[Rfam]
Nucleotides: 081
Base pairs, nucleotide, nucleotide: 001081004078005077006076007075
Number, partner (000 for none) and nucleotide at each position: 001081g002000u003000u004078g005077g006076c007075c008000u009000a010000u011000g012000a013000u014000g015000c016000a017000a018000c019000a020000u021000u022000u023000g024000c025000c026000u027000a028000c029000a030000u031000u032000g033000u034000c035000u036000g037000a038000u039000u040000g041000u042000c043000g044000u045000a046000u047000c048000a049000g050000u051000g052000a053000u054000u055000g056000a057000u058000a059000a060000a061000c062000a063000a064000u065000g066000a067000a068000a069000u070000a071000c072000u073000g074000a075007g076006g077005c078004c079000u080000u081001u